[Rfam]
RNA: Small nucleolar RNA snoR74
Organism: Vitis vinifera
RNA sequence: UAAAAAGCAGGGACCUGUUGCCUUUGUCAGCAUUUCUCUCAUAAACUUCAGGGAAAGCAGUUUCAUUAUUAUUGGGUGAACCUCUGGAGUUGUUUGUGAUGGAAGGUUCAAUAAAUUGUGGCAUAUUG
Numbered sequence: 001u002a003a004a005a006a007g008c009a010g011g012g013a014c015c016u017g018u019u020g021c022c023u024u025u026g027u028c029a030g031c032a033u034u035u036c037u038c039u040c041a042u043a044a045a046c047u048u049c050a051g052g053g054a055a056a057g058c059a060g061u062u063u064c065a066u067u068a069u070u071a072u073u074g075g076g077u078g079a080a081c082c083u084c085u086g087g088a089g090u091u092g093u094u095u096g097u098g099a100u101g102g103a104a105g106g107u108u109c110a111a112u113a114a115a116u117u118g119u120g121g122c123a124u125a126u127u128g
Stems, first nucleotide, its partner, number of pairs: 005048003011037002016032002064120003068116003077110007